[Rfam]
RNA: U2 spliceosomal RNA
Organism: Nasonia vitripennis
RNA sequence: AUCGCUUCUCGGCCUAUUGGCUAAGAUCAAAGUGUAGUAUCUGUUCUUAUCAGCUUGAUAUCUGAUACGCUCCUCAUUGAGGAGCCAGAAUAUCGAACUGAUUUUUGGAAUAUGGCGGAGUGUCUGGGGCUUGCUCCGACUCCGCCACGGGUCGACCUUGCAUUGCAGUACCGCAAGGAACGGCCCACACAAU
Numbered sequence: 001a002u003c004g005c006u007u008c009u010c011g012g013c014c015u016a017u018u019g020g021c022u023a024a025g026a027u028c029a030a031a032g033u034g035u036a037g038u039a040u041c042u043g044u045u046c047u048u049a050u051c052a053g054c055u056u057g058a059u060a061u062c063u064g065a066u067a068c069g070c071u072c073c074u075c076a077u078u079g080a081g082g083a084g085c086c087a088g089a090a091u092a093u094c095g096a097a098c099u100g101a102u103u104u105u106u107g108g109a110a111u112a113u114g115g116c117g118g119a120g121u122g123u124c125u126g127g128g129g130c131u132u133g134c135u136c137c138g139a140c141u142c143c144g145c146c147a148c149g150g151g152u153c154g155a156c157c158u159u160g161c162a163u164u165g166c167a168g169u170a171c172c173g174c175a176a177g178g179a180a181c182g183g184c185c186c187a188c189a190c191a192a193u
Base pairs, nucleotide, nucleotide: 007026008025009024011022012021013020014019048067049066050065051064052063053062069085070084071083072082073081074080075079114146115145116144117143118142119141120140121139126137127136128135129134149186150185151184152183153182154181156178157177158176159175160174161173
Dot-bracket structure: ......(((.((((....)))).))).....................((((((........)))))).(((((((...)))))))............................((((((((....((((....)))).))))))))..((((((.((((((...........))))))..)))))).......